[Rfam]
RNA: Bacterial small subunit ribosomal RNA, nucleotides 574 to 927
Organism: Streptococcus himalayensis
RNA sequence: GGCGUAAAGCGAGCGCAGGCGGUUAGAUAAGUCUGAAGUUAAAGGCUGUGGCUUAACCAUAGUACGCUUUGGAAACUGUUUAACUUGAGUGCAGAAGGGGAGAGUGGAAUUCCAUGUGUAGCGGUGAAAUGCGUAGAUAUAUGGAGGAACACCGGUGGCGAAAGCGGCUCUCUGGUCUGUAACUGACGCUGAGGCUCGAAAGCGUGGGGAGCGAACAGGAUUAGAUACCCUGGUAGUCCACGCCGUAAACGAUGAGUGCUAGGUGUUGGGUCCUUUCCGGGACUCAGUGCCGCAGCUAACGCAUUAAGCACUCCGCCUGGGGAGUACGACCGCAAGGUUGAAACUCAAAGGAAU
Numbered sequence: 001g002g003c004g005u006a007a008a009g010c011g012a013g014c015g016c017a018g019g020c021g022g023u024u025a026g027a028u029a030a031g032u033c034u035g036a037a038g039u040u041a042a043a044g045g046c047u048g049u050g051g052c053u054u055a056a057c058c059a060u061a062g063u064a065c066g067c068u069u070u071g072g073a074a075a076c077u078g079u080u081u082a083a084c085u086u087g088a089g090u091g092c093a094g095a096a097g098g099g100g101a102g103a104g105u106g107g108a109a110u111u112c113c114a115u116g117u118g119u120a121g122c123g124g125u126g127a128a129a130u131g132c133g134u135a136g137a138u139a140u141a142u143g144g145a146g147g148a149a150c151a152c153c154g155g156u157g158g159c160g161a162a163a164g165c166g167g168c169u170c171u172c173u174g175g176u177c178u179g180u181a182a183c184u185g186a187c188g189c190u191g192a193g194g195c196u197c198g199a200a201a202g203c204g205u206g207g208g209g210a211g212c213g214a215a216c217a218g219g220a221u222u223a224g225a226u227a228c229c230c231u232g233g234u235a236g237u238c239c240a241c242g243c244c245g246u247a248a249a250c251g252a253u254g255a256g257u258g259c260u261a262g263g264u265g266u267u268g269g270g271u272c273c274u275u276u277c278c279g280g281g282a283c284u285c286a287g288u289g290c291c292g293c294a295g296c297u298a299a300c301g302c303a304u305u306a307a308g309c310a311c312u313c314c315g316c317c318u319g320g321g322g323a324g325u326a327c328g329a330c331c332g333c334a335a336g337g338u339u340g341a342a343a344c345u346c347a348a349a350g351g352a353a354u
Base pairs, nucleotide, nucleotide: 001317002316003315009314011197012196013195014194016191018190019189020188022084023083024082025081026080027079028078030077031076032073033072034071035070036069037068038067039066045063046062047061048060049059050058051057088184089183090182091180092179093178094177095176099173100172101171102170103169104168105167106150110146111145112144113143114142115141116140117139121132122131123130158165159164202243203242204241205240206239207238211237212236216232217231218230219229254313255312256311257310258309259308262291263290264289265288266287267286268285269284270283271282272281273280295302296301319346320345321344328339329338330337331336